[Rfam]
RNA sequence: UGACAAAAGCAGAAGCACCCGCUUCUCACCUGAUUGACGCUACUAGCUGUUAACAGGUUGUUACGGUUUGCGCAUGUAUUUGAUCGUAAUCAGUGUGGGUGUCGUAUGCACUCACACUUUUUUAUUAGA
Numbered sequence: 001u002g003a004c005a006a007a008a009g010c011a012g013a014a015g016c017a018c019c020c021g022c023u024u025c026u027c028a029c030c031u032g033a034u035u036g037a038c039g040c041u042a043c044u045a046g047c048u049g050u051u052a053a054c055a056g057g058u059u060g061u062u063a064c065g066g067u068u069u070g071c072g073c074a075u076g077u078a079u080u081u082g083a084u085c086g087u088a089a090u091c092a093g094u095g096u097g098g099g100u101g102u103c104g105u106a107u108g109c110a111c112u113c114a115c116a117c118u119u120u121u122u123u124a125u126u127a128g129a
Stems, first nucleotide, its partner, number of pairs: 011026006028058003036051003039047002094116009
RNA: Ribosomal protein L20 leader
Organism: Thermaerobacillus caldiproteolyticus